RNA sequence: CUGUCUGCUCUGAACUCCAGUUCCAGGUGAGAUUCUGGGGACCCAGACUCAUAGAGGGAGAAACUGGACUGUCUGGCAUCAGGCAGA
Numbered sequence: 001c002u003g004u005c006u007g008c009u010c011u012g013a014a015c016u017c018c019a020g021u022u023c024c025a026g027g028u029g030a031g032a033u034u035c036u037g038g039g040g041a042c043c044c045a046g047a048c049u050c051a052u053a054g055a056g057g058g059a060g061a062a063a064c065u066g067g068a069c070u071g072u073c074u075g076g077c078a079u080c081a082g083g084c085a086g087a
Stems, first nucleotide, its partner, number of pairs: 001086002005082003009078001010076003014072002016068006022059003027052005034047005